[Rfam]
RNA sequence: UUGUAAUUCAAAUUUCUUACCGGGCCUUACUAAAGACCCCAAGUACAAUUUUUGCAACCCUGUCCAUCCGGGCGGGGUA
Numbered sequence: 001u002u003g004u005a006a007u008u009c010a011a012a013u014u015u016c017u018u019a020c021c022g023g024g025c026c027u028u029a030c031u032a033a034a035g036a037c038c039c040c041a042a043g044u045a046c047a048a049u050u051u052u053u054g055c056a057a058c059c060c061u062g063u064c065c066a067u068c069c070g071g072g073c074g075g076g077g078u079a
Stems, first nucleotide, its partner, number of pairs: 022039003026035003057078009